RNA sequence: UUUCCCAUUUGACUACCACGUUUUCUCCUAAUAGAUUUUAGUGGCUAUGCUUAUGGGAUAGAUGAAAGGUGCCGUGAUCUGAAGAGGGAGGAUUUUCAGUGUCUUCCCCCUAUAUGAAAUGGCUGGACACACACAC
Numbered sequence: 001u002u003u004c005c006c007a008u009u010u011g012a013c014u015a016c017c018a019c020g021u022u023u024u025c026u027c028c029u030a031a032u033a034g035a036u037u038u039u040a041g042u043g044g045c046u047a048u049g050c051u052u053a054u055g056g057g058a059u060a061g062a063u064g065a066a067a068g069g070u071g072c073c074g075u076g077a078u079c080u081g082a083a084g085a086g087g088g089a090g091g092a093u094u095u096u097c098a099g100u101g102u103c104u105u106c107c108c109c110c111u112a113u114a115u116g117a118a119a120u121g122g123c124u125g126g127a128c129a130c131a132c133a134c135a136c
Stems, first nucleotide, its partner, number of pairs: 004057004016044004071123004089111003
A member of the RNA family "Small nucleolar RNA SNORA29" from Neotoma lepida, 136 nucleotides long.
Taxonomically the source falls in Neotoma (Eukaryota, Gnathostomata, Amniota, Mammalia).
It scores 148 bits against the family's covariance model.
Rfam describes the family as follows. ACA29 is a member of the H/ACA class of snoRNA that guide the sites of modification of uridines to pseudouridines.
For this family Rfam cites "RNomics: an experimental approach that identifies 201 candidates for novel, small, non-messenger RNAs in mouse" (Huttenhofer et al., EMBO J, 2001).
It is annotated as an H/ACA-box small nucleolar RNA.
Gene Ontology terms of the family: nucleolus and RNA processing.